[Rfam]
RNA sequence: CGUUUCCUCACUGGAGAGAGGGGGCGGGCCAUCUGGUCGAACCCUCCACCGAAGGCGCAACCCGCAGUGAUUCUUUCUGUUUGAAGGGCUCACCCGGCGAAUCGCUCAGGUAAAACGGACAGCGAGGGCAAC
Numbered sequence: 001c002g003u004u005u006c007c008u009c010a011c012u013g014g015a016g017a018g019a020g021g022g023g024g025c026g027g028g029c030c031a032u033c034u035g036g037u038c039g040a041a042c043c044c045u046c047c048a049c050c051g052a053a054g055g056c057g058c059a060a061c062c063c064g065c066a067g068u069g070a071u072u073c074u075u076u077c078u079g080u081u082u083g084a085a086g087g088g089c090u091c092a093c094c095c096g097g098c099g100a101a102u103c104g105c106u107c108a109g110g111u112a113a114a115a116c117g118g119a120c121a122g123c124g125a126g127g128g129c130a131a132c
Base pairs, nucleotide, nucleotide: 006127007126008125009124011122012121013120020046021045022044023043048111049110050109051107052106055105056104057103062097063096064095
RNA: Glycine riboswitch aptamer